[Rfam]
RNA: pemK RNA
Organism: Paenibacillus sp. MY03
RNA sequence: AUUAUGAUACUUCCGUCCAGCCACAGUUUAUCGCAAUGGGGGCGGCCUGCAGUGAUCCUGGAGGAAGCGCAAGCAUGCGCUUAUGA
Numbered sequence: 001a002u003u004a005u006g007a008u009a010c011u012u013c014c015g016u017c018c019a020g021c022c023a024c025a026g027u028u029u030a031u032c033g034c035a036a037u038g039g040g041g042g043c044g045g046c047c048u049g050c051a052g053u054g055a056u057c058c059u060g061g062a063g064g065a066a067g068c069g070c071a072a073g074c075a076u077g078c079g080c081u082u083a084u085g086a
Stems, first nucleotide, its partner, number of pairs: 012083001013045006046064003050060003065082007